[Rfam]
RNA: ZMP/ZTP riboswitch aptamer (pfl RNA motif)
RNA sequence: GGCCUUCGUCGCGACUGGCGCUCAGAUGGUCACCAUCGGGGAGCGACGACGGUACCUCGAACGAACGGGUGGAUUCGGCCGCGCGCCUGGGUCGAUAGC
Numbered sequence: 001g002g003c004c005u006u007c008g009u010c011g012c013g014a015c016u017g018g019c020g021c022u023c024a025g026a027u028g029g030u031c032a033c034c035a036u037c038g039g040g041g042a043g044c045g046a047c048g049a050c051g052g053u054a055c056c057u058c059g060a061a062c063g064a065a066c067g068g069g070u071g072g073a074u075u076c077g078g079c080c081g082c083g084c085g086c087c088u089g090g091g092u093c094g095a096u097a098g099c
Stems, first nucleotide, its partner, number of pairs: 003052002006049007015040002017087005026036004076094005